A member of the RNA family "Small nucleolar RNA SNORA43" from Gopherus evgoodei, 135 nucleotides long.
ACA43 is a member of the H/ACA class of snoRNA that guide the sites of modification of uridines to pseudouridines.
Lineage of the source: Eukaryota > Euteleostomi > Archelosauria > Testudines > Gopherus.

[Rfam]
Nucleotides: 135
Stems, first nucleotide, its partner, number of pairs: 003060004007055004019046004071127003080117002084113002089108005
Number, partner (000 for none) and nucleotide at each position: 001000u002000a003060u004059g005058c006057c007055c008054c009053u010052a011000g012000a013000g014000g015000c016000a017000u018000u019046a020045c021044a022043c023000a024000u025000g026000u027000g028000g029000c030000u031000g032000u033000c034000a035000u036000g037000c038000c039000a040000u041000g042000u043022g044021u045020g046019u047000g048000u049000c050000a051000u052010u053009a054008g055007g056000u057006g058005g059004c060003a061000g062000a063000g064000a065000g066000g067000a068000a069000g070000a071127g072126g073125c074000u075000a076000u077000g078000u079000c080117u081116g082000c083000a084113c085112u086000c087000a088000g089108u090107g091106c092105u093104c094000u095000g096000g097000a098000a099000c100000c101000u102000g103000u104093g105092a106091g107090c108089a109000c110000u111000c112085a113084g114000a115000a116081u117080g118000a119000u120000u121000a122000g123000u124000a125073g126072c127071c128000u129000g130000a131000c132000a133000u134000u135000g